[Rfam]
RNA sequence: UUACUUACCUGGAUGGGGUCGAUGGGCGAUCAAGAAGGCUCAUGGCUUAGGUAGGUGGCCUCCAUUGCGCCUUGGAGGGGCGCCUGCCAACAUCAUAAUUUGUUGCAGUGGGAGCCUGCGUUCGCGCGGCUCCUGC
Number, nucleotide and partner (000 for none) at each position: 001u000002u000003a000004c000005u000006u000007a000008c000009c000010u000011g000012g094013a093014u092015g091016g048017g047018g046019u045020c044021g043022a000023u042024g041025g040026g039027c038028g000029a000030u000031c000032a000033a000034g000035a000036a000037g000038g027039c026040u025041c024042a023043u021044g020045g019046c018047u017048u016049a000050g088051g087052u000053a000054g000055g083056u082057g081058g000059c079060c078061u077062c075063c074064a000065u000066u000067g000068c000069g000070c000071c000072u000073u000074g063075g062076a000077g061078g060079g059080g000081c057082g056083c055084c000085u000086g000087c051088c050089a000090a000091c015092a014093u013094c012095a000096u000097a000098a000099u000100u000101u000102g000103u000104u000105g000106c000107a000108g000109u135110g134111g133112g132113a131114g000115c000116c000117u128118g127119c126120g125121u000122u000123c000124g000125c120126g119127c118128g117129g000130c000131u113132c112133c111134u110135g109136c000

The family of this 136-nucleotide RNA sequence from Coffea arabica is "U1 spliceosomal RNA".
The family's RNA type in Rfam is spliceosomal small nuclear RNA.